A member of the RNA family "Lysine riboswitch aptamer" from Falsibacillus pallidus, 179 nucleotides long.
Lineage of the source: Bacteria > Bacillati > Caryophanales > Bacillaceae > Falsibacillus.

RNA sequence: AGUGAUGAUAGAGGUGCAGACUUCAAGAGUAGUCAUUAAGAGGCGUAUGAGCGCUGAAGAAGGAUGAUGAAAGGGGAUGUCUGCCGAAGUGGGAAAGUACUCAUGGCUUUUUCGCUGGUUCUGCAUUGAACAAAUGCAGGAUUGUCAAGAUGGUCACAUCUUGGAGAGCUAUCUCACCA
Number, nucleotide and partner (000 for none) at each position: 001a000002g000003u000004g000005a000006u000007g173008a172009u171010a170011g169012a000013g000014g000015u000016g084017c083018a082019g081020a080021c079022u077023u076024c075025a000026a000027g000028a000029g000030u000031a000032g068033u067034c066035a065036u064037u063038a000039a000040g000041a000042g000043g000044c000045g000046u000047a000048u000049g000050a000051g000052c000053g000054c000055u000056g000057a000058a000059g000060a000061a000062g000063g037064a036065u035066g034067a033068u032069g000070a000071a000072a000073g000074g000075g024076g023077a022078u000079g021080u020081c019082u018083g017084c016085c000086g000087a000088a116089g115090u114091g113092g112093g111094a110095a109096a108097g107098u106099a000100c000101u000102c000103a000104u000105g000106g098107c097108u096109u095110u094111u093112u092113c091114g090115c089116u088117g143118g142119u141120u140121c139122u138123g137124c136125a135126u134127u133128g000129a000130a000131c000132a000133a127134a126135u125136g124137c123138a122139g121140g120141a119142u118143u117144g000145u164146c163147a162148a161149g160150a159151u158152g000153g000154u000155c000156a000157c000158a151159u150160c149161u148162u147163g146164g145165a000166g000167a000168g000169c011170u010171a009172u008173c007174u000175c000176a000177c000178c000179a000